Notes
The family of this 328-nucleotide RNA sequence from Orycteropus afer is "7SK RNA". It scores 261 bits against the family's covariance model. NCBI's taxonomy places the organism under Eukaryota, Craniata, Teleostomi, Theria, Orycteropus afer. The family is grouped with related families in Rfam's "7SK clan". Pairs were carried over by alignment from the consensus structure, which is taken from published work.
RNA sequence: UGAUGUGAGUGUGAUCUGGCUGUGACAUUUGUCACCCCAUUGAUCACCAGAGUUGAUUCAGCUGAUCUGACUGGCAAGGUGGGUGUCACCUUCCUCCCUCACCACUCCAUGUAAUCCUACUUGAAGUUGCAUGGUCAUUUAAAGAGGACAACCUUCCCUGAUAGAGGAGGGCUGUCCUUCAGCCAAGGGUAUGUGAAUAGCUAUACUCCCCUGUAGAACCUCCAAACAAGCUCUCAAGGUCCAUUUGUAGGAGAACAUAAGGUAGUCAAACUUCCAAGACUCCAGACAUACCUAAUGAGGCACUGCAUGUGGCAGUCUGCCUUUCAAA
Numbered sequence: 001u002g003a004u005g006u007g008a009g010u011g012u013g014a015u016c017u018g019g020c021u022g023u024g025a026c027a028u029u030u031g032u033c034a035c036c037c038c039a040u041u042g043a044u045c046a047c048c049a050g051a052g053u054u055g056a057u058u059c060a061g062c063u064g065a066u067c068u069g070a071c072u073g074g075c076a077a078g079g080u081g082g083g084u085g086u087c088a089c090c091u092u093c094c095u096c097c098c099u100c101a102c103c104a105c106u107c108c109a110u111g112u113a114a115u116c117c118u119a120c121u122u123g124a125a126g127u128u129g130c131a132u133g134g135u136c137a138u139u140u141a142a143a144g145a146g147g148a149c150a151a152c153c154u155u156c157c158c159u160g161a162u163a164g165a166g167g168a169g170g171g172c173u174g175u176c177c178u179u180c181a182g183c184c185a186a187g188g189g190u191a192u193g194u195g196a197a198u199a200g201c202u203a204u205a206c207u208c209c210c211c212u213g214u215a216g217a218a219c220c221u222c223c224a225a226a227c228a229a230g231c232u233c234u235c236a237a238g239g240u241c242c243a244u245u246u247g248u249a250g251g252a253g254a255a256c257a258u259a260a261g262g263u264a265g266u267c268a269a270a271c272u273u274c275c276a277a278g279a280c281u282c283c284a285g286a287c288a289u290a291c292c293u294a295a296u297g298a299g300g301c302a303c304u305g306c307a308u309g310u311g312g313c314a315g316u317c318u319g320c321c322u323u324u325c326a327a328a
Base pairs, nucleotide, nucleotide: 002107003106005102006101007100008099009098011096013093014092018090019089024087025086026085027084028083029082030081031080032079033078035074036073038069039068042067043066044065045064047061115170116169117167118166120164122137123136124135127133139161140160141159146157147156148155200271202269206265207264209262210261212259213258214257220253221252222251223250226248227247228246229245230244293328297323298322299321300320301319302316303315304314305313306312
Rfam 15.1 lists 49,373 matches to the family in 668 species.